[Rfam]
RNA: Group II catalytic intron D1-D4-5
Organism: Hungatella hathewayi
RNA sequence: GAGAACUGAUAAUCCGAUAGGUGGAAUGAUAGGGGAACGCCUUGAAACGCCUGCCUAAAACUGCGAAUGGCAUGAUUGUGAUUAAGCACAAGAUUGUCAUAAAGCUCGCUGAAGUCGCCUGUAUGCACUUGCUAAGGUCAAAAAGGAUACAGCAAAACCAAGCCAGAGGUGGCUGGGAGUGAUAGGGCGGGGUCUAUAAA
Numbered sequence: 001g002a003g004a005a006c007u008g009a010u011a012a013u014c015c016g017a018u019a020g021g022u023g024g025a026a027u028g029a030u031a032g033g034g035g036a037a038c039g040c041c042u043u044g045a046a047a048c049g050c051c052u053g054c055c056u057a058a059a060a061c062u063g064c065g066a067a068u069g070g071c072a073u074g075a076u077u078g079u080g081a082u083u084a085a086g087c088a089c090a091a092g093a094u095u096g097u098c099a100u101a102a103a104g105c106u107c108g109c110u111g112a113a114g115u116c117g118c119c120u121g122u123a124u125g126c127a128c129u130u131g132c133u134a135a136g137g138u139c140a141a142a143a144a145g146g147a148u149a150c151a152g153c154a155a156a157a158c159c160a161a162g163c164c165a166g167a168g169g170u171g172g173c174u175g176g177g178a179g180u181g182a183u184a185g186g187g188c189g190g191g192g193u194c195u196a197u198a199a200a
Stems, first nucleotide, its partner, number of pairs: 018053006031043004055192002063109004067100005074095004079090001116189005126181004130154003137150002158177002161174005